Description:
Rfam assigns this 47-nucleotide sequence from Ziziphus jujuba to the family "Plastid-rpl16 group II-D1 intron". From the family's description: Plastid-rpl16 is a non-coding RNA (ncRNA) recognised in plastids. It was recognised in and intronic region of a ribosome rpl16 gene. A reference for the family is Richter et al. (2023), "Retrograde signaling in plants: A critical review focusing on the GUN pathway and beyond", Plant Commun.

RNA sequence: AAGAGCCUCGAGCCAAUAAAUACUAAGAGGAUUGACUCAAGAACGAA
Dot-bracket structure: ......((.(((.((((.............)))).))).))......